RNA sequence: ACCCUCUCUCAGUGGCCAUAGCAGAAGUAUUCAUGUUGUGGCCCUGUCAGAUUCUAACAAAUCUGCAAAUUUUGCU
Numbered sequence: 001a002c003c004c005u006c007u008c009u010c011a012g013u014g015g016c017c018a019u020a021g022c023a024g025a026a027g028u029a030u031u032c033a034u035g036u037u038g039u040g041g042c043c044c045u046g047u048c049a050g051a052u053u054c055u056a057a058c059a060a061a062u063c064u065g066c067a068a069a070u071u072u073u074g075c076u
Stems, first nucleotide, its partner, number of pairs: 012044001014043004020076007027039003048065006

Annotation: Mammalian CPEB3 ribozyme: a 76-nucleotide RNA from Alligator mississippiensis. Rfam links the family to the GO term RNA nuclease activity. The family's consensus secondary structure is taken from published work. The source organism's lineage runs through Eukaryota, Chordata, Vertebrata, Alligatorinae and Alligator.